The record is a 42-nucleotide RNA sequence from Drosophila robusta, which matches "Wingless localisation element 3 (WLE3)" in Rfam. It is one of the family's seed sequences. The literature on the family includes a 2008 paper in Development by dos Santos et al., "A stem-loop structure in the wingless transcript defines a consensus motif for apical RNA transport". Lineage of the source: Eukaryota > Eumetazoa > Pancrustacea > Allotriocarida > Drosophila.
RNA sequence: UGCUUGCAUUUCGCUUUGCCCAGCUGCAAAACGCAUGUUAAG
Numbered sequence: 001u002g003c004u005u006g007c008a009u010u011u012c013g014c015u016u017u018g019c020c021c022a023g024c025u026g027c028a029a030a031a032c033g034c035a036u037g038u039u040a041a042g
Stems, first nucleotide, its partner, number of pairs: 003042003006038004011033001013032001015030005